[Rfam]
The family of this 62-nucleotide RNA from Macaca mulatta is "U7 small nuclear RNA". Pairs were carried over by alignment from the consensus structure, which was predicted with PFOLD. The organism belongs to Macaca, within Eukaryota. A reference for the family is Spycher et al. (1994), "3' end processing of mouse histone pre-mRNA: evidence for additional base-pairing between U7 snRNA and pre-mRNA", Nucleic Acids Res.
RNA sequence: GAGUGUUCCAGCUCUUUCAGAAUCUGUCUAGCAGGCUUUCUGGUUUUUACAGGAAGGCCCCC
Numbered sequence: 001g002a003g004u005g006u007u008c009c010a011g012c013u014c015u016u017u018c019a020g021a022a023u024c025u026g027u028c029u030a031g032c033a034g035g036c037u038u039u040c041u042g043g044u045u046u047u048u049a050c051a052g053g054a055a056g057g058c059c060c061c062c
Stems, first nucleotide, its partner, number of pairs: 034059008043050002